Shown here is a 74-nucleotide sequence from Pengzhenrongella frigida, a member of the family "c-di-GMP-I riboswitch aptamer". On this family, see Weinberg et al., Nucleic Acids Res 2007: "Identification of 22 candidate structured RNAs in bacteria using the CMfinder comparative genomics pipeline". Gene Ontology term of the family: cyclic-di-GMP binding.
RNA sequence: UCAGCGAAACCGCAAACCCGUCGAGAGGCGGGGACGCAAAGCCACGGGGCCCAUGGGCCAGCCGAGCUACCGAA
Number, nucleotide and partner (000 for none) at each position: 001u000002c000003a000004g000005c000006g000007a000008a000009a000010c000011c000012g037013c036014a000015a000016a000017c032018c031019c030020g029021u028022c027023g000024a000025g000026a000027g022028g021029c020030g019031g018032g017033g000034a000035c000036g013037c012038a000039a000040a068041g067042c066043c000044a000045c064046g063047g062048g059049g058050c057051c056052c000053a000054u000055g000056g051057g050058c049059c048060a000061g000062c047063c046064g045065a000066g042067c041068u040069a000070c000071c000072g000073a000074a000
The match comes from Rfam's covariance-model search (62 bits). The base pairs follow the family's consensus structure, which is taken from published work.